[Rfam]
RNA sequence: AGAUGACCUCGUAGAGCAGCGAGGUCGGUAAAAUAAAAAAAGCUCACUGAGA
Numbered sequence: 001a002g003a004u005g006a007c008c009u010c011g012u013a014g015a016g017c018a019g020c021g022a023g024g025u026c027g028g029u030a031a032a033a034u035a036a037a038a039a040a041a042g043c044u045c046a047c048u049g050a051g052a
Base pairs, nucleotide, nucleotide: 006025007024008023009022010021011020014045015044016043017042
6A RNA: a 52-nucleotide sequence. The family's RNA type in Rfam is small RNA. The family's consensus secondary structure is taken from published work.